The family of this 244-nucleotide RNA sequence from Peribacillus asahii is "T-box leader". A search with the family's covariance model found it, with a score of 146 bits. On this family, see Grundy et al., J Bacteriol 1994: "Interaction between the acceptor end of tRNA and the T box stimulates antitermination in the Bacillus subtilis tyrS gene: a new role for the discriminator base". The base pairs follow the family's consensus structure, which is taken from published work. By type it is a cis-regulatory leader.
RNA sequence: UAAUAAGCAACGAUUGGAAAUAGUAAAAGGAUUUAUAAGCUUUUCAGAGAGCUGAUGGUUGGUGAGAAUCAGUAGUUAUAACCUUUGAACUCGUCCAAGAGCUACUCCCUGAACAUAAUUAGUAGGGGAUGUCGGUUUUCUACCGUUAUGAAGAUAGGUGGUGAUUGCCACCGAAAAUGAGUGGAUUAAUCUAACUAUGAUUAAUCAAUUAGAGUGGUACCGCGAGCAACGCCUCGUCUCUAUG
Number, nucleotide and partner (000 for none) at each position: 001u000002a000003a000004u000005a000006a000007g102008c101009a000010a000011c000012g000013a000014u000015u097016g096017g095018a094019a000020a000021u000022a000023g000024u000025a000026a086027a085028a084029g083030g082031a000032u000033u000034u000035a000036u000037a000038a000039g000040c000041u075042u074043u000044u000045c000046a000047g000048a000049g000050a000051g073052c072053u071054g070055a069056u068057g000058g000059u000060u000061g000062g000063u000064g000065a000066g000067a000068a056069u055070c054071a053072g052073u051074a042075g041076u000077u000078a000079u000080a000081a000082c030083c029084u028085u027086u026087g000088a000089a000090c000091u000092c000093g000094u018095c017096c016097a015098a000099g000100a000101g008102c007103u000104a000105c131106u129107c128108c127109c126110u125111g000112a000113a000114c000115a000116u000117a000118a000119u000120u000121a000122g000123u000124a000125g110126g109127g108128g107129a106130u000131g105132u000133c145134g144135g143136u000137u000138u000139u000140c000141u000142a000143c135144c134145g133146u000147u000148a000149u000150g000151a000152a000153g000154a000155u000156a000157g000158g000159u000160g000161g000162u000163g000164a000165u000166u000167g000168c000169c000170a000171c000172c000173g000174a000175a000176a000177a000178u000179g000180a000181g000182u000183g000184g206185a205186u204187u203188a202189a201190u200191c000192u000193a000194a000195c000196u000197a000198u000199g000200a190201u189202u188203a187204a186205u185206c184207a000208a000209u000210u000211a241212g240213a239214g238215u000216g000217g000218u000219a000220c000221c000222g237223c236224g235225a234226g233227c000228a000229a000230c000231g000232c000233c226234u225235c224236g223237u222238c214239u213240c212241u211242a000243u000244g000